[Rfam]
RNA sequence: UGCCGCCAAAAACUCCGAAGCCGCUUUUGCCUACGUUCUGCAGCAGCUUGACUCAUUCAGGCACACAGAAUAGGGCAUGACGGCCGUAGCACAGAUGAUGCUACCGGGUUCGGUGAGAAAUUACCGGGCCUCCCGACAUUGGAAAGGUGUUUUCAGGUGCAGCAA
Numbered sequence: 001u002g003c004c005g006c007c008a009a010a011a012a013c014u015c016c017g018a019a020g021c022c023g024c025u026u027u028u029g030c031c032u033a034c035g036u037u038c039u040g041c042a043g044c045a046g047c048u049u050g051a052c053u054c055a056u057u058c059a060g061g062c063a064c065a066c067a068g069a070a071u072a073g074g075g076c077a078u079g080a081c082g083g084c085c086g087u088a089g090c091a092c093a094g095a096u097g098a099u100g101c102u103a104c105c106g107g108g109u110u111c112g113g114u115g116a117g118a119a120a121u122u123a124c125c126g127g128g129c130c131u132c133c134c135g136a137c138a139u140u141g142g143a144a145a146g147g148u149g150u151u152u153u154c155a156g157g158u159g160c161a162g163c164a165a
Base pairs, nucleotide, nucleotide: 003159006156011151012150013149015147016146020084021083022082023081025079027077029076030075031074035071036070037069038068039067040066086104087103088102089101090100106131107130108129109128110127111126112125113124114123115122116121132142133141
A member of the RNA family "Molybdenum/Tungsten riboswitch aptamer (Moco RNA motif)" from Plesiomonas shigelloides, 165 nucleotides long. Lineage of the source: Bacteria > Pseudomonadota > Enterobacterales > Enterobacteriaceae > Plesiomonas shigelloides.